[Rfam]
RNA sequence: GACCUCCCUCUGUGGGGCGAUCGAUCUGGGGCCCCGUGAUCGAUCACCCCACAGAGGGAGGCC
Number, nucleotide and partner (000 for none) at each position: 001g063002a000003c061004c060005u059006c058007c057008c056009u055010c054011u053012g052013u051014g050015g049016g048017g047018c000019g045020a044021u043022c042023g041024a040025u039026c038027u036028g035029g034030g000031g000032c000033c000034c029035c028036g027037u000038g026039a025040u024041c023042g022043a021044u020045c019046a000047c017048c016049c015050c014051a013052c012053a011054g010055a009056g008057g007058g006059a005060g004061g003062c000063c001
mir-9242 microRNA precursor family: a 63-nucleotide RNA from Myotis myotis. The family's consensus secondary structure was predicted with RNAalifold. The match comes from Rfam's covariance-model search (65 bits). Rfam links the family to the GO terms miRNA-mediated post-transcriptional gene silencing and RISC complex.